[Rfam]
RNA sequence: AUGGAAAACGGCUAAGCUGUCGAAAGGCAGUGACGCAAAGCCACGGGUCUUCUCACUAUUCAAGUGAUGACAGCCGGGUUACCCAAU
Numbered sequence: 001a002u003g004g005a006a007a008a009c010g011g012c013u014a015a016g017c018u019g020u021c022g023a024a025a026g027g028c029a030g031u032g033a034c035g036c037a038a039a040g041c042c043a044c045g046g047g048u049c050u051u052c053u054c055a056c057u058a059u060u061c062a063a064g065u066g067a068u069g070a071c072a073g074c075c076g077g078g079u080u081a082c083c084c085a086a087u
Base pairs, nucleotide, nucleotide: 001087003084004083011036012035016031017030018029019028020027021026034073039080040079041078042077044076045075046074047071048070049069